[Rfam]
RNA sequence: AAAUUUCAUUGAAACUAAACUUAUAUAUCGUCAUGAUAUGGAUGACAGUUUCUACCUUGUGCCGUAAACGCAAGACUAUAAGUAAAAAUUGUACGGUU
Numbered sequence: 001a002a003a004u005u006u007c008a009u010u011g012a013a014a015c016u017a018a019a020c021u022u023a024u025a026u027a028u029c030g031u032c033a034u035g036a037u038a039u040g041g042a043u044g045a046c047a048g049u050u051u052c053u054a055c056c057u058u059g060u061g062c063c064g065u066a067a068a069c070g071c072a073a074g075a076c077u078a079u080a081a082g083u084a085a086a087a088a089u090u091g092u093a094c095g096g097u098u
Stems, first nucleotide, its partner, number of pairs: 019083007030046005056074006
The family of this 98-nucleotide RNA from Enterococcus hermanniensis is "Purine riboswitch aptamer". The base pairs follow the family's consensus structure, which is taken from published work. NCBI's taxonomy places the organism under Bacteria, Bacillati, Bacillota, Enterococcaceae, Enterococcus. Gene Ontology term of the family: purine nucleobase biosynthetic process. Its Rfam clan is "Purine riboswitches".